[Rfam]
RNA sequence: UGGAAAUGAGGACAAAAUGCAAUUCUGGAUUCAUUAUGGAGACUAAUAAUCCAACUCUGAUCCAAACACUGAG
Numbered sequence: 001u002g003g004a005a006a007u008g009a010g011g012a013c014a015a016a017a018u019g020c021a022a023u024u025c026u027g028g029a030u031u032c033a034u035u036a037u038g039g040a041g042a043c044u045a046a047u048a049a050u051c052c053a054a055c056u057c058u059g060a061u062c063c064a065a066a067c068a069c070u071g072a073g
Stems, first nucleotide, its partner, number of pairs: 001064004
RNA: Small nucleolar RNA SNORD19
Organism: Betta splendens